Shown here is a 123-nucleotide RNA sequence from Gossypium stocksii, a member of the family "MIR7504 microRNA precursor family". Pairs were carried over by alignment from the consensus structure, which was predicted with RNAalifold. The match comes from Rfam's covariance-model search (89 bits).

[Rfam]
RNA sequence: AAUAGGAGCGUGACAAAUUAGAUUUUUCCUCCUGAUUUUUUACAUUUUUAGUUGGAUUUGAAUUUUUUCAAUAGGAAAAAGCUGAAAAUCAAGAGGAAAAAUAUAAUCUGUCAUGCUCCUAUU
Dot-bracket structure: (((((((((((((((.((((.((((((.(((.(((((((.....((((...........................)))).....))))))).))).)))))).)))).)))))))))))))))